[Rfam]
This 133-nucleotide RNA from Castor canadensis belongs to the Rfam family "Small nucleolar RNA SNORA51". Taxonomically the source falls in Castor (Eukaryota, Chordata, Eutheria, Euarchontoglires). The base pairs follow the family's consensus structure, which was predicted with PFOLD. The family's RNA type in Rfam is H/ACA-box small nucleolar RNA. It scores 115 bits against the family's covariance model. From the family's description: ACA51 is a member of the H/ACA class of snoRNA that guide the sites of modification of uridines to pseudouridines.
RNA sequence: GGCCUCCUGGUGCUUACCACAGGCUGUAUUCUUACACUGACUGUACAAUAAAGAGGAAGGAAAGUAAACCUACCCCAUAUACACUUCAAUCCAGACCCUAUCCCUGGUCUGUAUUGUGAAUGGGAAGACAUGG
Numbered sequence: 001g002g003c004c005u006c007c008u009g010g011u012g013c014u015u016a017c018c019a020c021a022g023g024c025u026g027u028a029u030u031c032u033u034a035c036a037c038u039g040a041c042u043g044u045a046c047a048a049u050a051a052a053g054a055g056g057a058a059g060g061a062a063a064g065u066a067a068a069c070c071u072a073c074c075c076c077a078u079a080u081a082c083a084c085u086u087c088a089a090u091c092c093a094g095a096c097c098c099u100a101u102c103c104c105u106g107g108u109c110u111g112u113a114u115u116g117u118g119a120a121u122g123g124g125a126a127g128a129c130a131u132g133g
Stems, first nucleotide, its partner, number of pairs: 003059001005057004020043003026037002029034001074124005087111002091107004